The family of this 94-nucleotide sequence from Lodderomyces elongisporus is "Small nucleolar RNA snR57". It scores 87 bits against the family's covariance model. Pairs were carried over by alignment from the consensus structure.

[Rfam]
RNA sequence: ACCAAACAUGAUUAAAUACAAUGAUAUAACUUUUUAAACUGAGGAUGUACAUGCAGGACAUAUCGUUAAGGAAUUCUUCGUUUAUGAUUGUGGU
Numbered sequence: 001a002c003c004a005a006a007c008a009u010g011a012u013u014a015a016a017u018a019c020a021a022u023g024a025u026a027u028a029a030c031u032u033u034u035u036a037a038a039c040u041g042a043g044g045a046u047g048u049a050c051a052u053g054c055a056g057g058a059c060a061u062a063u064c065g066u067u068a069a070g071g072a073a074u075u076c077u078u079c080g081u082u083u084a085u086g087a088u089u090g091u092g093g094u
Stems, first nucleotide, its partner, number of pairs: 001094004